RNA sequence: GUUGUUCAACUCUCCCUCAAGGGCUUCUGACCUUGUCGUCUCAGACACAGUCACGUUGUAUGCUAAAUACGACAGGCUAGAGGCCCUUGUUGGAGGGUUAAGAACAA
Numbered sequence: 001g002u003u004g005u006u007c008a009a010c011u012c013u014c015c016c017u018c019a020a021g022g023g024c025u026u027c028u029g030a031c032c033u034u035g036u037c038g039u040c041u042c043a044g045a046c047a048c049a050g051u052c053a054c055g056u057u058g059u060a061u062g063c064u065a066a067a068u069a070c071g072a073c074a075g076g077c078u079a080g081a082g083g084c085c086c087u088u089g090u091u092g093g094a095g096g097g098u099u100a101a102g103a104a105c106a107a
Stems, first nucleotide, its partner, number of pairs: 008099008018089012

A member of the RNA family "MIR473 microRNA precursor family" from Tetracentron sinense, 107 nucleotides long. A reference for the family is Pantaleo et al. (2010), "Identification of grapevine microRNAs and their targets using high-throughput sequencing and degradome analysis", Plant J.